[Rfam]
RNA sequence: AUUGUCGUCUUACCAGACAAGUUUAGAUCUAGCUAUUUCGUCUAAUACUGUCUGGUAAUGCCGUCCAU
Number, nucleotide and partner (000 for none) at each position: 001a000002u067003u000004g065005u000006c063007g062008u000009c060010u058011u057012a056013c055014c054015a053016g052017a051018c050019a049020a000021g000022u000023u045024u044025a043026g042027a041028u000029c000030u000031a000032g000033c000034u000035a000036u000037u000038u000039c000040g000041u027042c026043u025044a024045a023046u000047a000048c000049u019050g018051u017052c016053u015054g014055g013056u012057a011058a010059u000060g009061c000062c007063g006064u000065c004066c000067a002068u000
A member of the RNA family "mir-8/mir-141/mir-200 microRNA precursor family" from Esox lucius, 68 nucleotides long. For this family Rfam cites "Identification of novel genes coding for small expressed RNAs" (Lagos-Quintana et al., Science, 2001). Clan: mir-8 microRNA precursor clan.